[Rfam]
RNA: S-element
Organism: Phyllobacterium zundukense
RNA sequence: AGUCAAGGCUUUUUGGCACCGUUUUUGGUGAGCGGCUUUCUUUUGCCUCUUAGAAGGUGAAGAAAAAUG
Numbered sequence: 001a002g003u004c005a006a007g008g009c010u011u012u013u014u015g016g017c018a019c020c021g022u023u024u025u026u027g028g029u030g031a032g033c034g035g036c037u038u039u040c041u042u043u044u045g046c047c048u049c050u051u052a053g054a055a056g057g058u059g060a061a062g063a064a065a066a067a068u069g
Stems, first nucleotide, its partner, number of pairs: 010064005017059004023055006030048001032046004